Rfam assigns this 103-nucleotide RNA sequence from Nereida ignava to the family "Glycine riboswitch aptamer". Taxonomically the source falls in Nereida (Bacteria, Pseudomonadota, Alphaproteobacteria, Rhodobacterales). This family represents the bacterial glycine riboswitch. Rfam links the family to the GO term glycine biosynthetic process.
RNA sequence: GUGUCACACUCUGGAGAGACGCCUUCUAGCAAGGCGCACCGAAGGCGCAAGCGGUUCCCUAUGGACCGUGCAUCGCUCAGGUAAAGCGAACGGAGCGGGGUUG
Numbered sequence: 001g002u003g004u005c006a007c008a009c010u011c012u013g014g015a016g017a018g019a020c021g022c023c024u025u026c027u028a029g030c031a032a033g034g035c036g037c038a039c040c041g042a043a044g045g046c047g048c049a050a051g052c053g054g055u056u057c058c059c060u061a062u063g064g065a066c067c068g069u070g071c072a073u074c075g076c077u078c079a080g081g082u083a084a085a086g087c088g089a090a091c092g093g094a095g096c097g098g099g100g101u102u103g
Stems, first nucleotide, its partner, number of pairs: 007097001009095005020036004038082003041078002045076003051069006